[Rfam]
RNA: Glycine riboswitch aptamer
Organism: Nocardia otitidiscaviarum
RNA sequence: CGAGUCGUAGCGGGAGAGUCCCCGGCAGCGGGGGCGCCGAAGGAGCAAACUCCCCGGAAUCUCUCAGGUACAGGUACCGCAUCGACCAG
Number, nucleotide and partner (000 for none) at each position: 001c000002g000003a000004g000005u000006c084007g083008u000009a000010g080011c079012g078013g077014g000015a000016g000017a000018g000019u000020c034021c033022c032023c031024g000025g000026c000027a000028g000029c000030g000031g023032g022033g021034g020035c000036g069037c068038c067039g065040a064041a000042g000043g063044a062045g061046c000047a000048a000049a000050c056051u000052c000053c000054c000055c000056g050057g000058a000059a000060u000061c045062u044063c043064u040065c039066a000067g038068g037069u036070a000071c000072a000073g000074g000075u000076a000077c013078c012079g011080c010081a000082u000083c007084g006085a000086c000087c000088a000089g000